This 84-nucleotide RNA from Nicotiana attenuata belongs to the Rfam family "Small nucleolar RNA R44/J54/Z268 family".

RNA sequence: UAUGCAAAUGAUGAUAAAACAGACAGGGACAUCAGAACCUACAAGGGUAUGAUGAUUUGUCGAUGGGAAUCUCUCUGAUGCACU
Number, nucleotide and partner (000 for none) at each position: 001u000002a000003u082004g081005c080006a079007a000008a000009u000010g000011a000012u000013g000014a000015u000016a000017a000018a000019a000020c000021a000022g000023a000024c000025a000026g000027g000028g000029a000030c000031a000032u000033c000034a000035g000036a000037a000038c000039c000040u000041a000042c000043a000044a000045g000046g000047g000048u000049a000050u000051g000052a000053u000054g000055a000056u000057u000058u000059g000060u000061c000062g000063a000064u000065g000066g000067g000068a000069a000070u000071c000072u000073c000074u000075c000076u000077g000078a000079u006080g005081c004082a003083c000084u000
Rfam classes the family as a C/D-box small nucleolar RNA.